A member of the RNA family "Glycine riboswitch aptamer" from Clostridium fallax, 114 nucleotides long.

RNA sequence: AUGAUUUAAUAGGGAGACUAUUAUAAAAGUGUUUUUUUAUGAUGGCCGAAGGUAUAAACAAUGAAGAAUGCCUUUCAUUGCGAAUUUCUCAGGCGAAAGAACCUAUUAAUGACA
Numbered sequence: 001a002u003g004a005u006u007u008a009a010u011a012g013g014g015a016g017a018c019u020a021u022u023a024u025a026a027a028a029g030u031g032u033u034u035u036u037u038u039a040u041g042a043u044g045g046c047c048g049a050a051g052g053u054a055u056a057a058a059c060a061a062u063g064a065a066g067a068a069u070g071c072c073u074u075u076c077a078u079u080g081c082g083a084a085u086u087u088c089u090c091a092g093g094c095g096a097a098a099g100a101a102c103c104u105a106u107u108a109a110u111g112a113c114a
Stems, first nucleotide, its partner, number of pairs: 006109008020043008045094003048090002052088001054086001059080008

From the family's description: This family represents the bacterial glycine riboswitch. Lineage of the source: Bacteria > Bacillati > Bacillota > Clostridiaceae > Clostridium.